[Rfam]
RNA sequence: CGAUGGGGUAGAGGAGCAGGAUUUAAGAGUAAUCUGUGUGAGGAUGACAACUGCGAUCACAGGUGAAAGGGGAUCACUGCCGAAAUGGUAACAAUCAGUCAGGGUUUUAUCAUUGGGGUUAUCUUUAACAGGGAUAACACUCUCUUGCUGCAGAAUUUUUUCUGCGGGAUGAGGAGCUACAGAUCGU
Dot-bracket structure: .......((((....((((.((((.......(((((((...................)))))))......))))..))))...((((((((.(.(.......).).))))))))((.((((((((.....)))))))).)).((.(.((((((........)))))).).))....)))).......